[Rfam]
RNA sequence: AUGAAGCCUAUCAUUAUAUGUCCAUGGGUUCUAGAAAGCAUCAGGUGGGAUUGAUGAUGGGUACUUUCCCCCCCACCACCCAGCUCUACAUUCAUAAGUUUGCUGCUGCUCAGCACACGAAGAAGCAUUCUAUGUAAGUAGCAGUGCUCUUGGCUGAAGCACGGCAAACCGGCAAGUCACAAAACGGCAAUGGACUCCUCCAUGAAUCUU
Dot-bracket structure: ...............................................(((..................................)))..........((((((............(..........................................)....)))))).......................((.((......)).))..